[Rfam]
Description: The family of this 116-nucleotide sequence from Vibrio sediminis is "t44 RNA". On this family, see Tjaden et al., Nucleic Acids Res 2002: "Transcriptome analysis of Escherichia coli using high-density oligonucleotide probe arrays". This family consists of a number of bacterial RNA genes of between 135 and 170 bases in length. The t44 gene has been identified in several species of enteric bacteria but homologs have also been identified in Pseudomonas and Coxiella species.
RNA sequence: AACAAUUUAUCUUUAAAUCACACACGUACCGACACAUGUUCCGGGGUGCUUCCGCUGUGAAAGCUGUAAUGACGGCUGGCGGUAAGUCGGAUGCAUGGGGUAUGUGGAGGCCUAAC
Numbered sequence: 001a002a003c004a005a006u007u008u009a010u011c012u013u014u015a016a017a018u019c020a021c022a023c024a025c026g027u028a029c030c031g032a033c034a035c036a037u038g039u040u041c042c043g044g045g046g047u048g049c050u051u052c053c054g055c056u057g058u059g060a061a062a063g064c065u066g067u068a069a070u071g072a073c074g075g076c077u078g079g080c081g082g083u084a085a086g087u088c089g090g091a092u093g094c095a096u097g098g099g100g101u102a103u104g105u106g107g108a109g110g111c112c113u114a115a116c
Stems, first nucleotide, its partner, number of pairs: 023106008035097005040091004048087004